[Rfam]
RNA: c-di-AMP riboswitch aptamer (ydaO/yuaA leader)
Organism: Nonomuraea sp. WAC 01424
RNA sequence: GACCAGAGACCGCUGAAUCCGCCUGUGUGCGGAACCGGGGACCCAUGUGUCCAUCGGGGUGAAUCGGCACUGCUGUGCCGUAGGGCAGCUUCCCGCCCGAACCCGUCAGCUAACCCGGUAAGCGGCACGGAAGCACAA
Numbered sequence: 001g002a003c004c005a006g007a008g009a010c011c012g013c014u015g016a017a018u019c020c021g022c023c024u025g026u027g028u029g030c031g032g033a034a035c036c037g038g039g040g041a042c043c044c045a046u047g048u049g050u051c052c053a054u055c056g057g058g059g060u061g062a063a064u065c066g067g068c069a070c071u072g073c074u075g076u077g078c079c080g081u082a083g084g085g086c087a088g089c090u091u092c093c094c095g096c097c098c099g100a101a102c103c104c105g106u107c108a109g110c111u112a113a114c115c116c117g118g119u120a121a122g123c124g125g126c127a128c129g130g131a132a133g134c135a136c137a138a
Stems, first nucleotide, its partner, number of pairs: 011124004018033005034119006044056001057104003065080004083098004